RNA sequence: CUUGAUCGAGCCGAGCAGCAGCGGCUCCCCCGUCGUGCGCUGCCCGUAGGUCUCCAUCAGCGACUGCGCCUC
Numbered sequence: 001c002u003u004g005a006u007c008g009a010g011c012c013g014a015g016c017a018g019c020a021g022c023g024g025c026u027c028c029c030c031c032g033u034c035g036u037g038c039g040c041u042g043c044c045c046g047u048a049g050g051u052c053u054c055c056a057u058c059a060g061c062g063a064c065u066g067c068g069c070c071u072c
Stems, first nucleotide, its partner, number of pairs: 014026003031068003038062002041056002046051001
RNA: ASpks TB sRNA
Organism: Amycolatopsis sp. M39